A member of the RNA family "Bacterial small signal recognition particle RNA" from Mycoplasma sp. CAG:472, 98 nucleotides long. The organism belongs to Mycoplasma, within Bacteria. Rfam describes the family as follows. The signal recognition particle (SRP) is a universally conserved ribonucleoprotein involved in the co-translational targeting of proteins to membranes. The base pairs follow the family's consensus structure, which is taken from published work. The match comes from Rfam's covariance-model search (55 bits).
RNA sequence: AUUAUUUAUUUGUGCAACAAAUAUAUUGUAAACUGGUCAGGUUAGGAAUAAAGCAGCCAUAUCAAUCAAUGUUUGUGUGCACUUUUUUUGAGGUUAAA
Numbered sequence: 001a002u003u004a005u006u007u008a009u010u011u012g013u014g015c016a017a018c019a020a021a022u023a024u025a026u027u028g029u030a031a032a033c034u035g036g037u038c039a040g041g042u043u044a045g046g047a048a049u050a051a052a053g054c055a056g057c058c059a060u061a062u063c064a065a066u067c068a069a070u071g072u073u074u075g076u077g078u079g080c081a082c083u084u085u086u087u088u089u090g091a092g093g094u095u096a097a098a
Base pairs, nucleotide, nucleotide: 005092006091007090008089012082013081014080015077017076018075019074020073021072022071025066026065027064028063034059035058036057037056042051043050044049